mir-3473 microRNA precursor family: an 83-nucleotide RNA from Nannospalax galili. NCBI's taxonomy places the organism under Eukaryota, Vertebrata, Dipnotetrapodomorpha, Myomorpha, Nannospalax.
[Rfam]
RNA sequence: ACUGCUGAGCCAUCUUUCCAGCCCCUGUAUUGUAUAUCUCAAAAAUAUCCACACGCUUGGGGCUGGAGAGAUGGCUCAGCAGU
Numbered sequence: 001a002c003u004g005c006u007g008a009g010c011c012a013u014c015u016u017u018c019c020a021g022c023c024c025c026u027g028u029a030u031u032g033u034a035u036a037u038c039u040c041a042a043a044a045a046u047a048u049c050c051a052c053a054c055g056c057u058u059g060g061g062g063c064u065g066g067a068g069a070g071a072u073g074g075c076u077c078a079g080c081a082g083u
Stems, first nucleotide, its partner, number of pairs: 002082023